Shown here is a 120-nucleotide sequence from Castor canadensis, a member of the family "Small nucleolar RNA SNORA28". The source organism's lineage runs through Eukaryota, Euteleostomi, Dipnotetrapodomorpha, Mammalia and Castor. Rfam classes the family as an H/ACA-box small nucleolar RNA. Pairs were carried over by alignment from the consensus structure, which was predicted with RNAfold. Rfam's curators write: ACA28 is a member of the H/ACA class of snoRNA that guide the sites of modification of uridines to pseudouridines.

[Rfam]
Nucleotides: 120
Stems, first nucleotide, its partner, number of pairs: 009048003012041004017036006063113002066110004073106003080099002086094001
Number, partner (000 for none) and nucleotide at each position: 001000a002000a003000g004000c005000a006000a007000c008000a009048c010047u011046c012041u013040g014039u015038g016000g017036c018035a019034g020033a021032u022031g023000a024000u025000u026000g027000a028000a029000u030000c031022u032021g033020u034019u035018u036017g037000a038015c039014a040013u041012a042000a043000u044000u045000u046011g047010a048009g049000c050000u051000u052000g053000c054000u055000a056000u057000a058000g059000g060000a061000c062000a063113a064112a065000g066110u067109c068108u069107a070000a071000c072000c073106u074105a075104u076000u077000c078000c079000u080099g081098u082000g083000u084000u085000c086094u087000g088000u089000a090000u091000g092000u093000g094086a095000c096000a097000a098081g099080c100000c101000a102000u103000u104075a105074u106073g107069u108068a109067g110066a111000g112064u113063u114000a115000a116000a117000c118000a119000g120000u